[Rfam]
RNA sequence: CGGGGAAAGAAGACCCUGUUGAGUUUGACUCUAGUCUCCUAUUGUGGCGGAGCAUCUCUGGCGUAGCAUAGGGAGGAGGCUUCGGCCAACAGUGAAAUACUCCUACGGAGAUCGCUCCUCUGCUUACUCGGUUAGGCGGGUUCGUCCUUCGGGACGUUUUUUCGAAUCAACCGCUUGGGCUUUGCUCAGGCGGGACCCGCUCCGAGGACAUUGCGAGGCGGGGAGUUUGACUGGGGCGGUACAUCUGUCAAAUGAUAACGCAGGUGUCCUAAGGCCAGCUCAGCGAGGACGGAAACCUCGCGUAGAGCAAAAGGGCAAAUGCUGGCUUGACCUCUCCCUUCAGUACGGGGCGAGGAGCAGAAAUGUCGGCCUAUCGAUCCUCUUUAUUUCGGAGUUUGAAGAAAGAGGUGUCAGAAAAAUUACCACAGGGAUAACUGGCUUGUGGCGGCCAAGCGUUCAUAGCGACGUCGCUUUUUGAUCCUUCGAUGUCGGCUCUUCCUAUCAUUGCGAAGCAGAAUUCGCCAAGCGUCGGAUUGUUCACCCGCCAAUAGGGAACGUGAGCUGGGUUUAGACCGUCGUGAGACAGGUUAGUUUUACCCU
Numbered sequence: 001c002g003g004g005g006a007a008a009g010a011a012g013a014c015c016c017u018g019u020u021g022a023g024u025u026u027g028a029c030u031c032u033a034g035u036c037u038c039c040u041a042u043u044g045u046g047g048c049g050g051a052g053c054a055u056c057u058c059u060g061g062c063g064u065a066g067c068a069u070a071g072g073g074a075g076g077a078g079g080c081u082u083c084g085g086c087c088a089a090c091a092g093u094g095a096a097a098u099a100c101u102c103c104u105a106c107g108g109a110g111a112u113c114g115c116u117c118c119u120c121u122g123c124u125u126a127c128u129c130g131g132u133u134a135g136g137c138g139g140g141u142u143c144g145u146c147c148u149u150c151g152g153g154a155c156g157u158u159u160u161u162u163c164g165a166a167u168c169a170a171c172c173g174c175u176u177g178g179g180c181u182u183u184g185c186u187c188a189g190g191c192g193g194g195a196c197c198c199g200c201u202c203c204g205a206g207g208a209c210a211u212u213g214c215g216a217g218g219c220g221g222g223g224a225g226u227u228u229g230a231c232u233g234g235g236g237c238g239g240u241a242c243a244u245c246u247g248u249c250a251a252a253u254g255a256u257a258a259c260g261c262a263g264g265u266g267u268c269c270u271a272a273g274g275c276c277a278g279c280u281c282a283g284c285g286a287g288g289a290c291g292g293a294a295a296c297c298u299c300g301c302g303u304a305g306a307g308c309a310a311a312a313g314g315g316c317a318a319a320u321g322c323u324g325g326c327u328u329g330a331c332c333u334c335u336c337c338c339u340u341c342a343g344u345a346c347g348g349g350g351c352g353a354g355g356a357g358c359a360g361a362a363a364u365g366u367c368g369g370c371c372u373a374u375c376g377a378u379c380c381u382c383u384u385u386a387u388u389u390c391g392g393a394g395u396u397u398g399a400a401g402a403a404a405g406a407g408g409u410g411u412c413a414g415a416a417a418a419a420u421u422a423c424c425a426c427a428g429g430g431a432u433a434a435c436u437g438g439c440u441u442g443u444g445g446c447g448g449c450c451a452a453g454c455g456u457u458c459a460u461a462g463c464g465a466c467g468u469c470g471c472u473u474u475u476u477g478a479u480c481c482u483u484c485g486a487u488g489u490c491g492g493c494u495c496u497u498c499c500u501a502u503c504a505u506u507g508c509g510a511a512g513c514a515g516a517a518u519u520c521g522c523c524a525a526g527c528g529u530c531g532g533a534u535u536g537u538u539c540a541c542c543c544g545c546c547a548a549u550a551g552g553g554a555a556c557g558u559g560a561g562c563u564g565g566g567u568u569u570a571g572a573c574c575g576u577c578g579u580g581a582g583a584c585a586g587g588u589u590a591g592u593u594u595u596a597c598c599c600u
Stems, first nucleotide, its partner, number of pairs: 003600003007595002015429004020425002022421005028226004035218004040213002044123004049118005054112007071104005078087002127206005137199004145154002171193008229242001230240003243265006268369002274326006280306002283301006307316002331355004336350004357366003380407006387401004438479001440477001442476001444472006453463002490565001491563004495557001496554005503528001507522005530544003534540001571589004575584003
RNA: Eukaryotic large subunit ribosomal RNA, nucleotides 2574 to 3173
Organism: Paracyclopina nana